[Rfam]
RNA: Small nucleolar RNA U3
RNA sequence: GAGUCUAUACUUUCAGGGGUCAUUCUUAUACUUUGUCACUAGAGCAGCUUCUCUGAGUGUGUAGAGUGCCAGAAACCACAAGGAGGAGGUGCAGCGUUCUCUCCUGAGCUUGAAGCCGGCUCUUGGGGUUGCUUUGCUGCAACUGCCACUUGCCAGUGAUGAUGGUUCCUGCCCCCCUUCGGAGAGCUGGAGGGAGAGGACGCAGUCUGAAUG
Numbered sequence: 001g002a003g004u005c006u007a008u009a010c011u012u013u014c015a016g017g018g019g020u021c022a023u024u025c026u027u028a029u030a031c032u033u034u035g036u037c038a039c040u041a042g043a044g045c046a047g048c049u050u051c052u053c054u055g056a057g058u059g060u061g062u063a064g065a066g067u068g069c070c071a072g073a074a075a076c077c078a079c080a081a082g083g084a085g086g087a088g089g090u091g092c093a094g095c096g097u098u099c100u101c102u103c104c105u106g107a108g109c110u111u112g113a114a115g116c117c118g119g120c121u122c123u124u125g126g127g128g129u130u131g132c133u134u135u136g137c138u139g140c141a142a143c144u145g146c147c148a149c150u151u152g153c154c155a156g157u158g159a160u161g162a163u164g165g166u167u168c169c170u171g172c173c174c175c176c177c178u179u180c181g182g183a184g185a186g187c188u189g190g191a192g193g194g195a196g197a198g199g200a201c202g203c204a205g206u207c208u209g210a211a212u213g
Stems, first nucleotide, its partner, number of pairs: 002040003006035002009032001011030001015027004049065002054061001077213002094203012108166003118154003124148003128143005169189001171187002174184001176182002